[Rfam]
RNA sequence: UUUUUGUGCUAGGGGUGUCAAUUAGACUGAGAAAUACCCUUGAACCUGAUCUGGUUAGUCCCAGCGUAGGAAAGCAUAAUAUUUUAUAU
Numbered sequence: 001u002u003u004u005u006g007u008g009c010u011a012g013g014g015g016u017g018u019c020a021a022u023u024a025g026a027c028u029g030a031g032a033a034a035u036a037c038c039c040u041u042g043a044a045c046c047u048g049a050u051c052u053g054g055u056u057a058g059u060c061c062c063a064g065c066g067u068a069g070g071a072a073a074g075c076a077u078a079a080u081a082u083u084u085u086a087u088a089u
Stems, first nucleotide, its partner, number of pairs: 006077005011040004016034001017027003045070004051064004
This 89-nucleotide RNA sequence from Clostridiaceae bacterium 14S0207 belongs to the Rfam family "TPP riboswitch aptamer (THI element)". The match comes from Rfam's covariance-model search (71 bits).